Shown here is a 101-nucleotide sequence from Pontibacillus marinus, a member of the family "TPP riboswitch aptamer (THI element)". NCBI's taxonomy places the organism under Bacteria, Bacillati, Bacillota, Caryophanales, Pontibacillus marinus.
RNA sequence: AAAGACCACAAGGGGAGUCGUAUCGGCUGAGAUUGAACAUUCGUUCUAACCCUUUGAACCUGUUAGUUAAUUCUAGCGUAGGGAUGUGGCUUUAUUGAUGG
Numbered sequence: 001a002a003a004g005a006c007c008a009c010a011a012g013g014g015g016a017g018u019c020g021u022a023u024c025g026g027c028u029g030a031g032a033u034u035g036a037a038c039a040u041u042c043g044u045u046c047u048a049a050c051c052c053u054u055u056g057a058a059c060c061u062g063u064u065a066g067u068u069a070a071u072u073c074u075a076g077c078g079u080a081g082g083g084a085u086g087u088g089g090c091u092u093u094a095u096u097g098a099u100g101g
Base pairs, nucleotide, nucleotide: 006089007088008087009086010085011053012052013051014050016047017027018026019025020024035046036045037044038043059082060081061080062079063076064075065074066073